[Rfam]
RNA sequence: GAGGAGGCAACGAAUCGAUGAAGGAAGCCGAUAGCAAACCGCCAGCCUGACAAACAGGAAUCGGAUAUGAGGCACAAGGUCUGGGAGAGCUGUCUAAAUUCAGUUAACCCCGUAGCGGCACGGAAAGGCGAUGUGUAUAUCCGACAGGUAGGGCGCGAAGCGCAUGUGUG
Numbered sequence: 001g002a003g004g005a006g007g008c009a010a011c012g013a014a015u016c017g018a019u020g021a022a023g024g025a026a027g028c029c030g031a032u033a034g035c036a037a038a039c040c041g042c043c044a045g046c047c048u049g050a051c052a053a054a055c056a057g058g059a060a061u062c063g064g065a066u067a068u069g070a071g072g073c074a075c076a077a078g079g080u081c082u083g084g085g086a087g088a089g090c091u092g093u094c095u096a097a098a099u100u101c102a103g104u105u106a107a108c109c110c111c112g113u114a115g116c117g118g119c120a121c122g123g124a125a126a127g128g129c130g131a132u133g134u135g136u137a138u139a140u141c142c143g144a145c146a147g148g149u150a151g152g153g154c155g156c157g158a159a160g161c162g163c164a165u166g167u168g169u170g
Base pairs, nucleotide, nucleotide: 001016002015006011029168030167034163035162040155041154042153043152045149046148047147048146049145061144062143063142064141065140066139072136073135074134076132079129080128081127082126083111084110085109089104090103091102092101
RNA: Group II catalytic intron D1-D4-3